The record is a 138-nucleotide RNA sequence from Heyndrickxia shackletonii, which matches "Ribosomal protein L20 leader" in Rfam. By type it is a cis-regulatory leader. Pairs were carried over by alignment from the consensus structure, which was predicted with CMfinder. For this family Rfam cites "Diverse mechanisms for regulating ribosomal protein synthesis in Escherichia coli" (Zengel and Lindahl, Prog Nucleic Acid Res Mol Biol, 1994).
RNA sequence: GAGGAAAAGAAGGAGCACCCGCUUCUCGCCUGAUUGACGCUUAUAUUGCAGUUGGCAGGUUUCGAAAUUCAUCACAUUCAAAAACUAUUCAUACGUGAAUGUAAGUGCGGGUCGUCUUUCCCGCACUUUUUAUUUUGU
Numbered sequence: 001g002a003g004g005a006a007a008a009g010a011a012g013g014a015g016c017a018c019c020c021g022c023u024u025c026u027c028g029c030c031u032g033a034u035u036g037a038c039g040c041u042u043a044u045a046u047u048g049c050a051g052u053u054g055g056c057a058g059g060u061u062u063c064g065a066a067a068u069u070c071a072u073c074a075c076a077u078u079c080a081a082a083a084a085c086u087a088u089u090c091a092u093a094c095g096u097g098a099a100u101g102u103a104a105g106u107g108c109g110g111g112u113c114g115u116c117u118u119u120c121c122c123g124c125a126c127u128u129u130u131u132a133u134u135u136u137g138u
Stems, first nucleotide, its partner, number of pairs: 011026006028060003036053003039049002106125006